Shown here is an 87-nucleotide sequence from Gossypium lobatum, a member of the family "MIR7486 microRNA precursor family". Rfam links the family to the GO terms RISC complex and miRNA-mediated post-transcriptional gene silencing.
[Rfam]
RNA sequence: CACGUUAGCGCGCUUUGCUGACGUGGGAAGAAAUCGCUCCCCUUAGACCACGAUCUGUUGCCACGUCAUCAAAGCGCGCUAACGUGG
Numbered sequence: 001c002a003c004g005u006u007a008g009c010g011c012g013c014u015u016u017g018c019u020g021a022c023g024u025g026g027g028a029a030g031a032a033a034u035c036g037c038u039c040c041c042c043u044u045a046g047a048c049c050a051c052g053a054u055c056u057g058u059u060g061c062c063a064c065g066u067c068a069u070c071a072a073a074g075c076g077c078g079c080u081a082a083c084g085u086g087g
Stems, first nucleotide, its partner, number of pairs: 001086017019068003023064004028059002031056001033054004041046001

The base pairs follow the family's consensus structure, which was predicted with RNAalifold.